[Rfam]
RNA sequence: AGCACAAGUGAUGAAGCGAAGAUAGGGACAUCCGACUCCUUCUGGAGACUGCGGACGAAAAAUCUUCAUUGGGAAUCUCUCUGAUGUGCU
Numbered sequence: 001a002g003c004a005c006a007a008g009u010g011a012u013g014a015a016g017c018g019a020a021g022a023u024a025g026g027g028a029c030a031u032c033c034g035a036c037u038c039c040u041u042c043u044g045g046a047g048a049c050u051g052c053g054g055a056c057g058a059a060a061a062a063u064c065u066u067c068a069u070u071g072g073g074a075a076u077c078u079c080u081c082u083g084a085u086g087u088g089c090u
Base pairs, nucleotide, nucleotide: 002089003088004087005086006085